[Rfam]
RNA sequence: UCUCAGAGUAGAAGCAGGCAGUGGCGGCGCAUGCCACCACGGGUCAUUGCUCUGGUU
Numbered sequence: 001u002c003u004c005a006g007a008g009u010a011g012a013a014g015c016a017g018g019c020a021g022u023g024g025c026g027g028c029g030c031a032u033g034c035c036a037c038c039a040c041g042g043g044u045c046a047u048u049g050c051u052c053u054g055g056u057u
Stems, first nucleotide, its partner, number of pairs: 005053006015042001018044002021040004026035002
Shown here is a 57-nucleotide RNA from Ramlibacter rhizophilus, a member of the family "Xanthine riboswitch aptamer (NMT1 RNA)". Taxonomically the source falls in Ramlibacter (Bacteria, Betaproteobacteria, Burkholderiales, Comamonadaceae). A search with the family's covariance model found it, with a score of 47 bits. Pairs were carried over by alignment from the consensus structure, which is taken from published work. Gene Ontology term of the family: purine nucleobase binding.